The family of this 46-nucleotide RNA sequence from Cyclonatronum proteinivorum is "Acido-Lenti-1 RNA".
It is annotated as a small RNA.
[Rfam]
RNA sequence: CCCGGGGCUCACACCCCGGGCUAUGGUAUGUCGCCCUUUCAGGGCU
Numbered sequence: 001c002c003c004g005g006g007g008c009u010c011a012c013a014c015c016c017c018g019g020g021c022u023a024u025g026g027u028a029u030g031u032c033g034c035c036c037u038u039u040c041a042g043g044g045c046u
Stems, first nucleotide, its partner, number of pairs: 001020007033045005